[Rfam]
The record is a 252-nucleotide part of an RNA from Candidatus Undinarchaeum marinum, which matches "Archaeal large subunit ribosomal RNA" in Rfam. Clan: LSU clan. NCBI's taxonomy places the organism under Archaea, Nanobdellati, Candidatus Undinarchaeota, Candidatus Undinarchaeales, Candidatus Undinarchaeum.

RNA sequence: GUUGUCUGAGAGGAAGAUGUUCCCAGUACGAGAGGAACAGAACGUCGCAGCCUCUGGUCUAUCAGUUGUCUAACAAGGCAUUGCUGAGCAGCUACGCUGUAAGGGAUAAGCGCUGAACGCAUCUAAGCGCGAAACCUCCCUCGAAAAGAGACAAUUUGAGCUCCCCUAAAAUAGGGGUUUGAUAGGACGGGCGUGUACGCACGGAGCUUCGGCGACGUGUUUAGCGCGCCGUUACUAAACGCUCAGAAAUAC
Number, nucleotide and partner (000 for none) at each position: 001g155002u154003u153004g152005u151006c150007u149008g000009a000010g142011a141012g140013g139014a000015a000016g046017a045018u044019g043020u042021u041022c040023c000024c000025a000026g000027u000028a000029c000030g000031a000032g000033a000034g000035g000036a000037a000038c000039a000040g022041a021042a020043c019044g018045u017046c016047g100048c099049a098050g097051c096052c000053u000054c000055u094056g093057g092058u000059c000060u000061a000062u087063c086064a085065g084066u083067u080068g079069u078070c077071u076072a000073a000074c000075a000076a071077g070078g069079c068080a067081u000082u000083g066084c065085u064086g063087a062088g000089c000090a000091g000092c057093u056094a055095c000096g051097c050098u049099g048100u047101a000102a000103g137104g136105g135106a000107u000108a000109a000110g130111c129112g128113c127114u126115g000116a000117a000118c000119g000120c000121a000122u000123c000124u000125a000126a114127g113128c112129g111130c110131g000132a000133a000134a000135c105136c104137u103138c000139c013140c012141u011142c010143g000144a000145a000146a000147a000148g000149a007150g006151a005152c004153a003154a002155u001156u000157u000158g244159a243160g242161c241162u000163c177164c176165c175166c174167u000168a000169a000170a000171a000172u000173a000174g166175g165176g164177g163178u000179u000180u000181g000182a000183u237184a236185g235186g233187a232188c231189g230190g229191g227192c226193g225194u000195g000196u000197a000198c000199g220200c219201a218202c217203g216204g000205a000206g213207c000208u000209u000210c000211g000212g000213c206214g000215a000216c203217g202218u201219g200220u199221u000222u000223a000224g000225c193226g192227c191228g000229c190230c189231g188232u187233u186234a000235c185236u184237a183238a000239a000240c000241g161242c160243u159244c158245a000246g000247a000248a000249a000250u000251a000252c000